[Rfam]
RNA sequence: AAAUAGAAAAGGCACACCCGUUGAAAAACGGGGUCGCAAAGCUAUAGGGGCUACAGCGCAUCGAAAUGCGUCAAGCCAGCCAGUUGCCGAA
Numbered sequence: 001a002a003a004u005a006g007a008a009a010a011g012g013c014a015c016a017c018c019c020g021u022u023g024a025a026a027a028a029c030g031g032g033g034u035c036g037c038a039a040a041g042c043u044a045u046a047g048g049g050g051c052u053a054c055a056g057c058g059c060a061u062c063g064a065a066a067u068g069c070g071u072c073a074a075g076c077c078a079g080c081c082a083g084u085u086g087c088c089g090a091a
Base pairs, nucleotide, nucleotide: 012037013036017032018031019030020029021028022027040085041084042083043082047081048080049077050076051075056071057070058069059068060067061066
c-di-GMP-I riboswitch aptamer: a 91-nucleotide RNA from Cohnella lupini.